[Rfam]
Overview: The family of this 89-nucleotide sequence from Streptomyces sp. S4.7 is "sodF sRNA".
RNA sequence: GCGUCCUGCUCGUGAUCGUCUUCUCAGCCUUCACCUGCGGACGGAGUGACGAAGGACCCCCGCGAGGACAUGACUCGCGGGGGUCCUUC
Numbered sequence: 001g002c003g004u005c006c007u008g009c010u011c012g013u014g015a016u017c018g019u020c021u022u023c024u025c026a027g028c029c030u031u032c033a034c035c036u037g038c039g040g041a042c043g044g045a046g047u048g049a050c051g052a053a054g055g056a057c058c059c060c061c062g063c064g065a066g067g068a069c070a071u072g073a074c075u076c077g078c079g080g081g082g083g084u085c086c087u088u089c
Stems, first nucleotide, its partner, number of pairs: 002043002006040004012034004018028002051089016
Dot-bracket structure: .((..((((..((((..((.......))..))))..)))).)).......((((((((((((((((.......))))))))))))))))

For this family Rfam cites "Inverse regulation of Fe- and Ni-containing SOD genes by a Fur family regulator Nur through small RNA processed from 3'UTR of the sodF mRNA" (Kim et al., Nucleic Acids Res, 2014). It scores 83 bits against the family's covariance model. It is annotated as a small RNA. The source organism's lineage runs through Bacteria, Actinomycetota, Actinomycetes, Streptomycetaceae and Streptomyces.